[Rfam]
Record summary
The record is an 82-nucleotide RNA from Sphenodon punctatus, which matches "Small nucleolar RNA SNORD111" in Rfam. The family's RNA type in Rfam is C/D-box small nucleolar RNA. It scores 54 bits against the family's covariance model. Taxonomically the source falls in Sphenodon (Eukaryota, Chordata, Amniota, Lepidosauria).
RNA sequence: CAGCCUGAAAUGAUGAUAUGAAUUCAUGUCUCUUCUCUGAUAUACACAAUGGAGACACUCAAUUGCACAUCUGAUCAGGUUC
Numbered sequence: 001c002a003g004c005c006u007g008a009a010a011u012g013a014u015g016a017u018a019u020g021a022a023u024u025c026a027u028g029u030c031u032c033u034u035c036u037c038u039g040a041u042a043u044a045c046a047c048a049a050u051g052g053a054g055a056c057a058c059u060c061a062a063u064u065g066c067a068c069a070u071c072u073g074a075u076c077a078g079g080u081u082c
Stems, first nucleotide, its partner, number of pairs: 002081004